[Rfam]
RNA: Ribosomal protein L19 leader
Nucleotides: 044
Stems, first nucleotide, its partner, number of pairs: 003042007013034002015031003
Number, partner (000 for none) and nucleotide at each position: 001000a002000c003042g004041a005040u006039g007038u008037u009036c010000c011000g012000c013034u014033g015031u016030u017029u018000u019000a020000u021000c022000u023000g024000u025000u026000u027000u028000c029017a030016a031015a032000a033014u034013a035000c036009g037008a038007g039006c040005a041004u042003u043000g044000g